[Rfam]
RNA: Group II catalytic intron D1-D4-7
Organism: Bacteroides finegoldii
RNA sequence: CCUAUUGUUCCGUCAAUAGUAGCCUAAAGAGGCGUGCUUUACUAGUAAUGGUUUGGUGCGAAUCCCUCUUGACAAUGCUGUCCUUUACAGAAAUAUUCAAUGUAUAGGCUGCUAGGCUGACUGAUAUGAGCAACAUAUGUGAAUUG
Numbered sequence: 001c002c003u004a005u006u007g008u009u010c011c012g013u014c015a016a017u018a019g020u021a022g023c024c025u026a027a028a029g030a031g032g033c034g035u036g037c038u039u040u041a042c043u044a045g046u047a048a049u050g051g052u053u054u055g056g057u058g059c060g061a062a063u064c065c066c067u068c069u070u071g072a073c074a075a076u077g078c079u080g081u082c083c084u085u086u087a088c089a090g091a092a093a094u095a096u097u098c099a100a101u102g103u104a105u106a107g108g109c110u111g112c113u114a115g116g117c118u119g120a121c122u123g124a125u126a127u128g129a130g131c132a133a134c135a136u137a138u139g140u141g142a143a144u145u146g
Base pairs, nucleotide, nucleotide: 002019003018004017005016006015007014028069029068030067031066032065033060034059035058036057037056038055041052042051043050044049084106086104087103088102089101107118108117109116110115125139126138127137128136